Clostridiales-1 RNA: a 157-nucleotide RNA sequence from Oribacterium sp. C9.

RNA sequence: UAAGUCCGGUGUCAGGCGGCUAUGCAUCCUGCAAGUUUACUUGCGAAGAUGCAUAGCCAUCUGACACGACAACAGGAAUCGAGAAGUAGUGCAAUAGCGCGGAUUCGAGCUUUCUGUAGCAUUGCGAUAGCGUCAGCGGAGCAAUGCGGAGGACUUA
Numbered sequence: 001u002a003a004g005u006c007c008g009g010u011g012u013c014a015g016g017c018g019g020c021u022a023u024g025c026a027u028c029c030u031g032c033a034a035g036u037u038u039a040c041u042u043g044c045g046a047a048g049a050u051g052c053a054u055a056g057c058c059a060u061c062u063g064a065c066a067c068g069a070c071a072a073c074a075g076g077a078a079u080c081g082a083g084a085a086g087u088a089g090u091g092c093a094a095u096a097g098c099g100c101g102g103a104u105u106c107g108a109g110c111u112u113u114c115u116g117u118a119g120c121a122u123u124g125c126g127a128u129a130g131c132g133u134c135a136g137c138g139g140a141g142c143a144a145u146g147c148g149g150a151g152g153a154c155u156u157a
Base pairs, nucleotide, nucleotide: 001157002156003155004154005153006152007151009067010066011065012064015061016060018058019057020056021055022054023053024052025051026050027049028048030046031044032043033042034041035040073116074115075114076113077112078111080109083106084105085104089100090099091098092097119147120146121145122144123143124142125141130137131136

Notes: Rfam 15.1 lists 1,172 matches to the family in 137 species. A search with the family's covariance model found it, with a score of 83 bits.